[Rfam]
RNA sequence: UAAGGUUAUAGCUCUUUUAGAAUUUGUCUAACAGGUUUUCCUGUCUUCACCAGAACUCGCCAAC
Numbered sequence: 001u002a003a004g005g006u007u008a009u010a011g012c013u014c015u016u017u018u019a020g021a022a023u024u025u026g027u028c029u030a031a032c033a034g035g036u037u038u039u040c041c042u043g044u045c046u047u048c049a050c051c052a053g054a055a056c057u058c059g060c061c062a063a064c
Stems, first nucleotide, its partner, number of pairs: 034061003038055003043050002
Dot-bracket structure: .................................(((.(((..((....))..)))...)))...
Record summary:
This 64-nucleotide sequence from Nomascus leucogenys belongs to the Rfam family "U7 small nuclear RNA". The family has 49 seed sequences and 10,439 matches in Rfam 15.1.